[Rfam]
RNA sequence: AAUAGUUCUCAGGGCGGGGUGAAAUUCCCCACCGGCGGUAACGGGGCGCGCUCCCGAAAGCCCGCGAGCGGCCCCGUCAGAUACCGGGGUGUCAGCAGAUCUGGUGUCAUUCCAGAGCCGACGGUCAUAGUCCGGAUGGAAGAGAGCGGCA
Dot-bracket structure: ..(.((((((......(((.......))).[[((((((.....................[[))))..((.........................))...(((((.......)))))]])).(((.....]]))).......)))))).)..
Numbered sequence: 001a002a003u004a005g006u007u008c009u010c011a012g013g014g015c016g017g018g019g020u021g022a023a024a025u026u027c028c029c030c031a032c033c034g035g036c037g038g039u040a041a042c043g044g045g046g047c048g049c050g051c052u053c054c055c056g057a058a059a060g061c062c063c064g065c066g067a068g069c070g071g072c073c074c075c076g077u078c079a080g081a082u083a084c085c086g087g088g089g090u091g092u093c094a095g096c097a098g099a100u101c102u103g104g105u106g107u108c109a110u111u112c113c114a115g116a117g118c119c120g121a122c123g124g125u126c127a128u129a130g131u132c133c134g135g136a137u138g139g140a141a142g143a144g145a146g147c148g149g150c151a
Stems, first nucleotide, its partner, number of pairs: 003149001005147006017029003031131002033120002035065004060118002068096002100116005122134003
Overview:
A member of the RNA family "FMN riboswitch aptamer (RFN element)" from Roseovarius aestuarii, 151 nucleotides long. The RFN element is a highly conserved domain that is found frequently in the 5'-untranslated regions of prokaryotic mRNAs that encode for flavin mononucleotide (FMN) biosynthesis and transport proteins. This element is a metabolite-dependent riboswitch that directly binds FMN in the absence of proteins. In Bacillus subtilis, the riboswitch most likely controls gene expression by causing premature transcription termination within the 5' untranslated region of the ribDEAHT operon and precluding access to the ribosome-binding site of ypaA mRNA.The FMN riboswitch structure, reported in present an FMN-bound six-stem junction, adopts a butterfly-like scaffold, stapled together by opposingly directed but nearly identically folded peripheral domains. NCBI's taxonomy places the organism under Bacteria, Pseudomonadati, Pseudomonadota, Rhodobacterales, Roseovarius. The base pairs follow the family's consensus structure, which is taken from published work.